[Rfam]
RNA sequence: GCCUUUUCAGGCCACACCCGCCGCGAGACGGGGCCGGAAAGCCGACGGUUCAGUACCUUGAGUAUUGAAGGCUGGGUUGCACAG
Numbered sequence: 001g002c003c004u005u006u007u008c009a010g011g012c013c014a015c016a017c018c019c020g021c022c023g024c025g026a027g028a029c030g031g032g033g034c035c036g037g038a039a040a041g042c043c044g045a046c047g048g049u050u051c052a053g054u055a056c057c058u059u060g061a062g063u064a065u066u067g068a069a070g071g072c073u074g075g076g077u078u079g080c081a082c083a084g
Stems, first nucleotide, its partner, number of pairs: 012037002017032004022027001040078004046074003049069007

Annotation: Shown here is an 84-nucleotide RNA sequence from Azohydromonas caseinilytica, a member of the family "c-di-GMP-I riboswitch aptamer". The family's consensus secondary structure is taken from published work. From the family's description: GEMM was predicted in a large-scale screen for bacterial structured RNA regulatory elements.